[Rfam]
The record is a 150-nucleotide sequence from Atopomonas hussainii, which matches "PrrF RNA" in Rfam.
Rfam describes the family as follows. PrrF RNA is a small RNA involved in iron homeostasis and is found exclusively in Pseudomonas species.
Taxonomically the source falls in Atopomonas (Bacteria, Gammaproteobacteria, Pseudomonadales, Pseudomonadaceae).
For this family Rfam cites "Identification of tandem duplicate regulatory small RNAs in Pseudomonas aeruginosa involved in iron homeostasis" (Wilderman et al., Proc Natl Acad Sci U S A, 2004).
Gene Ontology term of the family: sRNA-mediated gene silencing.
RNA sequence: UUGACUCGCAAAUGAUAAUUGUUAUUAUUUGCACAUCUGGUCCUCGACCAGAUUGGAUAAUCUGAAAGUCAGCCAUGUAUCAGGCUCUCAGCUUAUCUCCUCAUCAGGCUAAUCACGGUUUGGCCCGGCAAUUUGCCGGGCCUUUUUUUG
Numbered sequence: 001u002u003g004a005c006u007c008g009c010a011a012a013u014g015a016u017a018a019u020u021g022u023u024a025u026u027a028u029u030u031g032c033a034c035a036u037c038u039g040g041u042c043c044u045c046g047a048c049c050a051g052a053u054u055g056g057a058u059a060a061u062c063u064g065a066a067a068g069u070c071a072g073c074c075a076u077g078u079a080u081c082a083g084g085c086u087c088u089c090a091g092c093u094u095a096u097c098u099c100c101u102c103a104u105c106a107g108g109c110u111a112a113u114c115a116c117g118g119u120u121u122g123g124c125c126c127g128g129c130a131a132u133u134u135g136c137c138g139g140g141c142c143u144u145u146u147u148u149u150g
Stems, first nucleotide, its partner, number of pairs: 034055001035053008062091004067086002099108003122142008